[Rfam]
RNA sequence: ACGUGCUCCGGGGUCGGUGAGAAUCCGAACCGGCGGUGACAGUCCGCGAGCCUGAGACCUUGGUCGAGGGUUGAUCCGGUGGAAAUCCGGAACCGACGGUGAUGCGACGUUCCUCCCCAGGGAGGCGCGCGCUAGUCCGGAUGGGAGGCAGCACAC
Numbered sequence: 001a002c003g004u005g006c007u008c009c010g011g012g013g014u015c016g017g018u019g020a021g022a023a024u025c026c027g028a029a030c031c032g033g034c035g036g037u038g039a040c041a042g043u044c045c046g047c048g049a050g051c052c053u054g055a056g057a058c059c060u061u062g063g064u065c066g067a068g069g070g071u072u073g074a075u076c077c078g079g080u081g082g083a084a085a086u087c088c089g090g091a092a093c094c095g096a097c098g099g100u101g102a103u104g105c106g107a108c109g110u111u112c113c114u115c116c117c118c119a120g121g122g123a124g125g126c127g128c129g130c131g132c133u134a135g136u137c138c139g140g141a142u143g144g145g146a147g148g149c150a151g152c153a154c155a156c
Stems, first nucleotide, its partner, number of pairs: 003154005008147001015027003031095002033047004042093002050071003075091005097139003
This 156-nucleotide RNA from Microbacterium aurum belongs to the Rfam family "FMN riboswitch aptamer (RFN element)". A search with the family's covariance model found it, with a score of 80 bits. The source organism's lineage runs through Bacteria, Actinomycetota, Actinomycetes, Microbacteriaceae and Microbacterium.